[Rfam]
RNA sequence: CAUGCGGGCCGGGCCCCUCUGGCGCGUUUCGUCGGCCACUCGUGGCGACGGGCGCGUGAUGUCGGACCGCAUCG
Dot-bracket structure: .....((.((((.........((((((((....................))))))))....)))).))......